This 77-nucleotide RNA sequence from Pangasianodon hypophthalmus belongs to the Rfam family "let-7 microRNA precursor family". From the family's description: This family represents the microRNAs (miRNA) let-7 and mir-98. let-7 was identified from a study of developmental timing in C. elegans, and was later shown to be part of a much larger class of non-coding RNAs termed miRNAs. The literature on the family includes a 2001 paper in Nat Rev Genet by Rougvie, "Control of developmental timing in animals". Its Rfam clan is "let-7 microRNA precursor clan". The match comes from Rfam's covariance-model search (68 bits).
RNA sequence: CCAGGCUGAGGUAGUAGGUUGUAUAGUUUAGAGUUAUAUCAUGGGAGAUAACUGUACAACCUCCUAGCUUUCCCUGA
Numbered sequence: 001c002c003a004g005g006c007u008g009a010g011g012u013a014g015u016a017g018g019u020u021g022u023a024u025a026g027u028u029u030a031g032a033g034u035u036a037u038a039u040c041a042u043g044g045g046a047g048a049u050a051a052c053u054g055u056a057c058a059a060c061c062u063c064c065u066a067g068c069u070u071u072c073c074c075u076g077a
Stems, first nucleotide, its partner, number of pairs: 002076004008070003012066003016062012040047001